Annotation
The record is a 556-nucleotide part of an RNA from uncultured bacterium Ak20-3, which matches "Bacterial large subunit ribosomal RNA" in Rfam. Rfam's curators put it in the seed alignment. Clan: LSU clan.
RNA sequence: UAAAAAGGGCGCACGGCGGAUGCCUUGGCACUAAGAGACGAUGAAAGACGUGGUAAGCUGCGAUAAGCUUCGGGGAGCUGCUAAACAAGCUUUGAUCCGGAGAUGUCUGAAUGGGGCAACCCCUUCCGUAAGGAAGAUCCUACGAUGAAUACAUAGUCGUGGGAGGUGAACGCGGAGAACUGAAACAUCUCAGUACCCGCAGGAAAAGAAAUCAAAAGAGAUACCGAAAGUAGUGGCGAGCGAAAUCGGUAGAGCCCAAACCGUAAAGAGAGAUCUUUGCGGGGUUGUGGGGUCAAGACACGGGGUUGGUAAAAUCUAGUGGAAGAAGCUGGAAAGCUUCACCAUAGAGGGUGAUAGUCCUGUACGCGAAAGAUUAAGCUAAUCUGUCUUGAUACCCGAGUAAAGCGGGACACGAGAAAUCCUGUUUGAAUCUGGGAGGACCAUCUUCCAAGGCUAAAUACUACUUAGUGACCGAUAGUGAAGAGUACCGUGAGGGAAAGGUGAAAAGAACCCCGUUGAGGGGAGUGAAAUAGACCUGAAACCGUGCGCUUACAAG
Numbered sequence: 001u002a003a004a005a006a007g008g009g010c011g012c013a014c015g016g017c018g019g020a021u022g023c024c025u026u027g028g029c030a031c032u033a034a035g036a037g038a039c040g041a042u043g044a045a046a047g048a049c050g051u052g053g054u055a056a057g058c059u060g061c062g063a064u065a066a067g068c069u070u071c072g073g074g075g076a077g078c079u080g081c082u083a084a085a086c087a088a089g090c091u092u093u094g095a096u097c098c099g100g101a102g103a104u105g106u107c108u109g110a111a112u113g114g115g116g117c118a119a120c121c122c123c124u125u126c127c128g129u130a131a132g133g134a135a136g137a138u139c140c141u142a143c144g145a146u147g148a149a150u151a152c153a154u155a156g157u158c159g160u161g162g163g164a165g166g167u168g169a170a171c172g173c174g175g176a177g178a179a180c181u182g183a184a185a186c187a188u189c190u191c192a193g194u195a196c197c198c199g200c201a202g203g204a205a206a207a208g209a210a211a212u213c214a215a216a217a218g219a220g221a222u223a224c225c226g227a228a229a230g231u232a233g234u235g236g237c238g239a240g241c242g243a244a245a246u247c248g249g250u251a252g253a254g255c256c257c258a259a260a261c262c263g264u265a266a267a268g269a270g271a272g273a274u275c276u277u278u279g280c281g282g283g284g285u286u287g288u289g290g291g292g293u294c295a296a297g298a299c300a301c302g303g304g305g306u307u308g309g310u311a312a313a314a315u316c317u318a319g320u321g322g323a324a325g326a327a328g329c330u331g332g333a334a335a336g337c338u339u340c341a342c343c344a345u346a347g348a349g350g351g352u353g354a355u356a357g358u359c360c361u362g363u364a365c366g367c368g369a370a371a372g373a374u375u376a377a378g379c380u381a382a383u384c385u386g387u388c389u390u391g392a393u394a395c396c397c398g399a400g401u402a403a404a405g406c407g408g409g410a411c412a413c414g415a416g417a418a419a420u421c422c423u424g425u426u427u428g429a430a431u432c433u434g435g436g437a438g439g440a441c442c443a444u445c446u447u448c449c450a451a452g453g454c455u456a457a458a459u460a461c462u463a464c465u466u467a468g469u470g471a472c473c474g475a476u477a478g479u480g481a482a483g484a485g486u487a488c489c490g491u492g493a494g495g496g497a498a499a500g501g502u503g504a505a506a507a508g509a510a511c512c513c514c515g516u517u518g519a520g521g522g523g524a525g526u527g528a529a530a531u532a533g534a535c536c537u538g539a540a541a542c543c544g545u546g547c548g549c550u551u552a553c554a555a556g
Base pairs, nucleotide, nucleotide: 007551008550009549010548011547012546013545014544015543016542022536023501024500027473028472029470030469031468032467033466034465035464036462037461038167039166046108047107048106049062050061051060068102069101070100071099072098073097074096077090078089079088113122114121115120123136124135125134126133127132138164139163140162141161142160143159144158145157146156171202172200173199174198175197182189183188212219213218222458223250224249225248226247227246233241234240253455254454255453256452261282262281263280264279265278266277267276289397290396291395293392294391295390296389297388305383306382307381308380309379310378313375314374315373316372317371319367320366321365325340326339327338328337329336343347349361350360351359403427404426405425406424407423408422409421410420434449435448436447437446438445488495489494511523512522513521514520